[Rfam]
RNA sequence: UAGAUGUUAAAAGCGCCAGAACCUGAUUGCAGCGGGUAAUUUAAUCAGGUGGACGAGGAAGAAGGUUAUCGAAUUUUCGGCGGAUGCCUUCAGGCAGUAGCUGUUUUGCCUUAAUUUUAUUUCUCAAAAUCAGUGGGUAAUUGCUGAAACAAAGGGGAUAAAUUACAGCUGA
Numbered sequence: 001u002a003g004a005u006g007u008u009a010a011a012a013g014c015g016c017c018a019g020a021a022c023c024u025g026a027u028u029g030c031a032g033c034g035g036g037u038a039a040u041u042u043a044a045u046c047a048g049g050u051g052g053a054c055g056a057g058g059a060a061g062a063a064g065g066u067u068a069u070c071g072a073a074u075u076u077u078c079g080g081c082g083g084a085u086g087c088c089u090u091c092a093g094g095c096a097g098u099a100g101c102u103g104u105u106u107u108g109c110c111u112u113a114a115u116u117u118u119a120u121u122u123c124u125c126a127a128a129a130u131c132a133g134u135g136g137g138u139a140a141u142u143g144c145u146g147a148a149a150c151a152a153a154g155g156g157g158a159u160a161a162a163u164u165a166c167a168g169c170u171g172a
Stems, first nucleotide, its partner, number of pairs: 021050007029042001061091005069080004092111006116162007130147007
RNA: glmS glucosamine-6-phosphate activated ribozyme aptamer
Organism: Halanaerobium saccharolyticum